[Rfam]
RNA: Pseudomonas sRNA CrcZ
RNA sequence: ACAACAAAAAUAAAAAAUCAGUAAAACCCCUAAUAAAAAUAAGACGUAACGACUCCAGCACAAUAAGAACAAGCAGGCGGAGGCGUAGCUAACUGAUCAUUUUGGAGAAGAGUCGAUUGCGGAGCAUUUGCCCCGUACCAGGCCGAGAACAAUAAAACUGCCCUGAGGCAGCACCUGCACUGGAUAGAUCAAUUGUGAUCAUGACGACAUCAGCGUCCAAAGUAAUCCGUUUGCUCUUGGCCCCGAAUUUGGGAGCCCUCCUGGCGGCAGGUAUCCGACCAGGACGGACCAGACAAGAAAAACAACAGGUUCGAUAUAACAAUAAAAACAAAGCACGUACCAAUUUGGGGGGGAGCUUCGGCUCCCCCAGUGCCUUAAGCUUCACGCCAGCCAUCAUUCA
Dot-bracket structure: .................................................((.((((......................)))).))..............(((((.........((....................((((((................(((((....)))))........)))).))...........................))..))))).................((.((.......)).))..........................((.(((.(..................).))..................(((..............(((((((((....))))))))..)..)))...).)).................
Numbered sequence: 001a002c003a004a005c006a007a008a009a010a011u012a013a014a015a016a017a018u019c020a021g022u023a024a025a026a027c028c029c030c031u032a033a034u035a036a037a038a039a040u041a042a043g044a045c046g047u048a049a050c051g052a053c054u055c056c057a058g059c060a061c062a063a064u065a066a067g068a069a070c071a072a073g074c075a076g077g078c079g080g081a082g083g084c085g086u087a088g089c090u091a092a093c094u095g096a097u098c099a100u101u102u103u104g105g106a107g108a109a110g111a112g113u114c115g116a117u118u119g120c121g122g123a124g125c126a127u128u129u130g131c132c133c134c135g136u137a138c139c140a141g142g143c144c145g146a147g148a149a150c151a152a153u154a155a156a157a158c159u160g161c162c163c164u165g166a167g168g169c170a171g172c173a174c175c176u177g178c179a180c181u182g183g184a185u186a187g188a189u190c191a192a193u194u195g196u197g198a199u200c201a202u203g204a205c206g207a208c209a210u211c212a213g214c215g216u217c218c219a220a221a222g223u224a225a226u227c228c229g230u231u232u233g234c235u236c237u238u239g240g241c242c243c244c245g246a247a248u249u250u251g252g253g254a255g256c257c258c259u260c261c262u263g264g265c266g267g268c269a270g271g272u273a274u275c276c277g278a279c280c281a282g283g284a285c286g287g288a289c290c291a292g293a294c295a296a297g298a299a300a301a302a303c304a305a306c307a308g309g310u311u312c313g314a315u316a317u318a319a320c321a322a323u324a325a326a327a328a329c330a331a332a333g334c335a336c337g338u339a340c341c342a343a344u345u346u347g348g349g350g351g352g353g354a355g356c357u358u359c360g361g362c363u364c365c366c367c368c369a370g371u372g373c374c375u376u377a378a379g380c381u382u383c384a385c386g387c388c389a390g391c392c393a394u395c396a397u398u399c400a
Stems, first nucleotide, its partner, number of pairs: 050085002053082004100222005114215002136186002138183004158171005240256002243253002283383002286380001287312002290309001331376003348371001349368008